[Rfam]
The family of this 139-nucleotide RNA sequence from Pomacea canaliculata is "Small nucleolar RNA SNORD10". NCBI's taxonomy places the organism under Eukaryota, Bilateria, Lophotrochozoa, Ampullariidae, Pomacea.

RNA sequence: GUAAUAUGAUGACAUCAUGCGUGUCAUUUGAGCAUCUUUUGGUGGAUUUGGUGUGCAAGUCCUUGCAAGCGUUCUGCUAGCCUGGACUCGGGCACUGAAACCUGCCAUGGUGUGAAUGAUUGUUGUGAAGUCUGAUUAC
Numbered sequence: 001g002u003a004a005u006a007u008g009a010u011g012a013c014a015u016c017a018u019g020c021g022u023g024u025c026a027u028u029u030g031a032g033c034a035u036c037u038u039u040u041g042g043u044g045g046a047u048u049u050g051g052u053g054u055g056c057a058a059g060u061c062c063u064u065g066c067a068a069g070c071g072u073u074c075u076g077c078u079a080g081c082c083u084g085g086a087c088u089c090g091g092g093c094a095c096u097g098a099a100a101c102c103u104g105c106c107a108u109g110g111u112g113u114g115a116a117u118g119a120u121u122g123u124u125g126u127g128a129a130g131u132c133u134g135a136u137u138a139c
Base pairs, nucleotide, nucleotide: 001139002138003137004136045101047099048098049097050096051095052094053093